[Rfam]
RNA sequence: GUCGGUCCUCGGUAGUGGUGUCCGGAGCAAGCUCCGGGCGCUUCGAUCGAAGACCGAC
Numbered sequence: 001g002u003c004g005g006u007c008c009u010c011g012g013u014a015g016u017g018g019u020g021u022c023c024g025g026a027g028c029a030a031g032c033u034c035c036g037g038g039c040g041c042u043u044c045g046a047u048c049g050a051a052g053a054c055c056g057a058c
Base pairs, nucleotide, nucleotide: 001058002057003056004055005054006053007052009050010049011048012047013046017042018041019040020039021038022037023036024035025034026033027032

This 58-nucleotide RNA sequence from Catellatospora sp. IY07-71 belongs to the Rfam family "Actino-pnp RNA".
The organism belongs to Catellatospora, within Bacteria.
The family's consensus secondary structure is taken from published work.
Rfam classes the family as a cis-regulatory element.